[Rfam]
A member of the RNA family "LOOT RNA", 121 nucleotides long. It is annotated as a small RNA. Rfam's curators put it in the seed alignment.
RNA sequence: GACCUAACCCGCUAUCUGGCGGCAUGGUCGUCAAAAAUCUAUUGCGAAAUAACAGCUCGUCGUCAGAGUUUCAUUUCGUAAUAGUCGUAACUGGAGACGGUUGCGGGUAGCCUCGGCUAUC
Dot-bracket structure: ((((....(((((....)))))...)))).........(((((((((((..(.(((((.......))))))..))))))))))).((((((((....))))))))((((((....))))))